[Rfam]
RNA sequence: CCGGUUGUUCCAUCAACCGUUCCCUACCCAGACAUGCGGAGCCGGUAACAGCUCGGUGUGAAGCUCUGGGGACAAUGUAACCGCCGAUCUAUUCGGUACGCCAACCCGUGAGGGUAAGCAGAAUCUGCGAGCACAAACGCGGUGAGGGGC
Numbered sequence: 001c002c003g004g005u006u007g008u009u010c011c012a013u014c015a016a017c018c019g020u021u022c023c024c025u026a027c028c029c030a031g032a033c034a035u036g037c038g039g040a041g042c043c044g045g046u047a048a049c050a051g052c053u054c055g056g057u058g059u060g061a062a063g064c065u066c067u068g069g070g071g072a073c074a075a076u077g078u079a080a081c082c083g084c085c086g087a088u089c090u091a092u093u094c095g096g097u098a099c100g101c102c103a104a105c106c107c108g109u110g111a112g113g114g115u116a117a118g119c120a121g122a123a124u125c126u127g128c129g130a131g132c133a134c135a136a137a138c139g140c141g142g143u144g145a146g147g148g149g150c
Stems, first nucleotide, its partner, number of pairs: 002019006028069005033060005039054004044049001083097005100119002106113002125142005
RNA: Group II catalytic intron D1-D4-7
Organism: Pseudomonas fluorescens